[Rfam]
RNA: Small nucleolar RNA SNORD2
RNA sequence: GUGUGAAAUGAUGGUUUACCAUCUUUCGGGACUGACAAGUCAUGGAGAUAUCUUUUUAACUAUUUUGCUGAUCAUGC
Dot-bracket structure: ((((((.................................................................))))))
Numbered sequence: 001g002u003g004u005g006a007a008a009u010g011a012u013g014g015u016u017u018a019c020c021a022u023c024u025u026u027c028g029g030g031a032c033u034g035a036c037a038a039g040u041c042a043u044g045g046a047g048a049u050a051u052c053u054u055u056u057u058a059a060c061u062a063u064u065u066u067g068c069u070g071a072u073c074a075u076g077c
Stems, first nucleotide, its partner, number of pairs: 001077006